[Rfam]
RNA sequence: AGAUAGCACUUUUUACUAUUCCGGCCAAUAACACAAUGAUAUGUAGAAUAAUUUUUCUACAUAUUAUUGUGUUGUUAGUUGGAGAUAGCAAAACAAUUCUAUAUUC
Numbered sequence: 001a002g003a004u005a006g007c008a009c010u011u012u013u014u015a016c017u018a019u020u021c022c023g024g025c026c027a028a029u030a031a032c033a034c035a036a037u038g039a040u041a042u043g044u045a046g047a048a049u050a051a052u053u054u055u056u057c058u059a060c061a062u063a064u065u066a067u068u069g070u071g072u073u074g075u076u077a078g079u080u081g082g083a084g085a086u087a088g089c090a091a092a093a094c095a096a097u098u099c100u101a102u103a104u105u106c
Stems, first nucleotide, its partner, number of pairs: 002105004011093004016088004020083006027076022